SAM riboswitch aptamer (S box leader): a 142-nucleotide RNA from Mumia sp. ZJ1417. It scores 62 bits against the family's covariance model. Rfam links the family to the GO term regulation of gene expression. Pairs were carried over by alignment from the consensus structure, which is taken from published work.

[Rfam]
RNA sequence: AGCUCAUCACGAGGGGCGGAGGGACACGGCCCGACGAAGCCCCGGCAACCAGCUGACGUGAACUCGCGAUCCCGCGAGGCCGCCGCCAGGCAUGGUGCCAAGUCCGUCCUGUGGCGAAAGUCGCGUGCAGGGAAGAUGACGA
Number, nucleotide and partner (000 for none) at each position: 001a000002g000003c000004u139005c138006a137007u136008c135009a000010c000011g000012a000013g043014g042015g041016g040017c039018g000019g000020a000021g032022g031023g030024a000025c000026a107027c106028g105029g104030c023031c022032c021033g000034a000035c000036g000037a000038a000039g017040c016041c015042c014043c013044g099045g098046c097047a096048a000049c095050c094051a000052g000053c089054u088055g000056a000057c000058g000059u000060g000061a000062a000063c000064u000065c000066g000067c000068g000069a000070u000071c000072c000073c000074g000075c000076g000077a000078g000079g000080c000081c000082g000083c000084c000085g000086c000087c000088a054089g053090g000091c000092a000093u000094g050095g049096u047097g046098c045099c044100a000101a000102g000103u134104c029105c028106g027107u026108c131109c130110u129111g128112u127113g126114g000115c000116g000117a000118a000119a000120g000121u000122c000123g000124c000125g000126u113127g112128c111129a110130g109131g108132g000133a000134a103135g008136a007137u006138g005139a004140c000141g000142a000